[Rfam]
RNA sequence: GUGAGUCACUUCGCUACAACGGAUCGUCCGACACGUACCUGUCGGUGGAGGAGUUUCAA
Numbered sequence: 001g002u003g004a005g006u007c008a009c010u011u012c013g014c015u016a017c018a019a020c021g022g023a024u025c026g027u028c029c030g031a032c033a034c035g036u037a038c039c040u041g042u043c044g045g046u047g048g049a050g051g052a053g054u055u056u057c058a059a
Stems, first nucleotide, its partner, number of pairs: 010052003014048003028045006

About this RNA: msiK RNA: a 59-nucleotide RNA sequence from Aeromicrobium sp. A1-2. It scores 52 bits against the family's covariance model. The family's consensus secondary structure is taken from published work. Rfam 15.1 lists 1,374 matches to the family in 1,364 species. Lineage of the source: Bacteria > Bacillati > Actinomycetota > Nocardioidaceae > Aeromicrobium. By type it is a cis-regulatory element.